[Rfam]
RNA: mir-142 microRNA precursor family
Organism: Synaphobranchus kaupii
RNA sequence: CAGUACAGUCAUCCAUAAAGUAGGAAACACUACACUGUGCUGUGGAGUUUAGUAGUGCUUUCUACUUUAUGGAUGACUGCACUGU
Numbered sequence: 001c002a003g004u005a006c007a008g009u010c011a012u013c014c015a016u017a018a019a020g021u022a023g024g025a026a027a028c029a030c031u032a033c034a035c036u037g038u039g040c041u042g043u044g045g046a047g048u049u050u051a052g053u054a055g056u057g058c059u060u061u062c063u064a065c066u067u068u069a070u071g072g073a074u075g076a077c078u079g080c081a082c083u084g085u
Stems, first nucleotide, its partner, number of pairs: 014071010026059001028057006